[Rfam]
RNA sequence: GGAUCGGGAGGCGGCCUGUGGGACGGCCGCCGGGAAUGGAUCCGACCCCCCGUUUCGUGAGGGUGCGCCGCCGGAGCCCGACGGCAGGUCGCG
Numbered sequence: 001g002g003a004u005c006g007g008g009a010g011g012c013g014g015c016c017u018g019u020g021g022g023a024c025g026g027c028c029g030c031c032g033g034g035a036a037u038g039g040a041u042c043c044g045a046c047c048c049c050c051c052g053u054u055u056c057g058u059g060a061g062g063g064u065g066c067g068c069c070g071c072c073g074g075a076g077c078c079c080g081a082c083g084g085c086a087g088g089u090c091g092c093g
Base pairs, nucleotide, nucleotide: 001043002042003041004040005039010031011030012029013028014027015026016025064093065092066091067090068088070085071084072083073082
Description: Rhodo-rpoB RNA: a 93-nucleotide RNA from Meinhardsimonia xiamenensis. Taxonomically the source falls in Meinhardsimonia (Bacteria, Alphaproteobacteria, Rhodobacterales, Paracoccaceae). It scores 74 bits against the family's covariance model. Pairs were carried over by alignment from the consensus structure, which is taken from published work.